[Rfam]
RNA sequence: UUAAAUGUUUUCUAGGGUUCCGCAACUAUCUAUGUUGGUCUGGUCCGAGAGAAAACUCACAGCUAUGCUGUGUCACGGAAGGAUAAAAGCCUGGGAGAA
Number, nucleotide and partner (000 for none) at each position: 001u000002u000003a000004a000005a000006u000007g056008u055009u054010u053011u052012c051013u000014a000015g046016g045017g000018u000019u000020c043021c042022g040023c037024a036025a035026c034027u000028a000029u000030c000031u000032a000033u000034g026035u025036u024037g023038g000039u000040c022041u000042g021043g020044u000045c016046c015047g000048a000049g000050a000051g012052a011053a010054a009055a008056c007057u000058c072059a071060c070061a069062g068063c000064u000065a000066u000067g000068c062069u061070g060071u059072g058073u000074c094075a000076c097077g000078g000079a000080a092081g091082g090083a000084u000085a000086a000087a000088a000089g000090c082091c081092u080093g000094g074095g000096a000097g076098a000099a000
About this RNA
The family of this 99-nucleotide sequence from Psychrobacillus psychrotolerans is "Guanidine-I riboswitch aptamer". This family represents a conserved RNA structure found upstream of the ykkC and yxkD genes in Bacillus subtilis and related genes in other bacteria. The function of this family is unclear although it has been suggested that it may function to switch on efflux pumps and detoxification systems in response to harmful environmental molecules. The base pairs follow the family's consensus structure. A search with the family's covariance model found it, with a score of 86 bits. The organism belongs to Psychrobacillus, within Bacteria.